[Rfam]
RNA: small nucleolar RNA snoR137
Organism: Panicum virgatum
RNA sequence: GUUGCUUCACGACUGGAAGAAUGGCCUGAUUUUCUAUUGUCUGGUCAUUCUGUAGAGGGAAGCAUAGAUUGAACACAAAGCCAGAAUUAAACAGCAUGAUGUUUAUUUCUCGGCAUCCAUGUUACCUGUCUCCUGGCACAAUC
Numbered sequence: 001g002u003u004g005c006u007u008c009a010c011g012a013c014u015g016g017a018a019g020a021a022u023g024g025c026c027u028g029a030u031u032u033u034c035u036a037u038u039g040u041c042u043g044g045u046c047a048u049u050c051u052g053u054a055g056a057g058g059g060a061a062g063c064a065u066a067g068a069u070u071g072a073a074c075a076c077a078a079a080g081c082c083a084g085a086a087u088u089a090a091a092c093a094g095c096a097u098g099a100u101g102u103u104u105a106u107u108u109c110u111c112g113g114c115a116u117c118c119a120u121g122u123u124a125c126c127u128g129u130c131u132c133c134u135g136g137c138a139c140a141a142u143c
Stems, first nucleotide, its partner, number of pairs: 003064006019050008080137005086131001093123003097119002099116003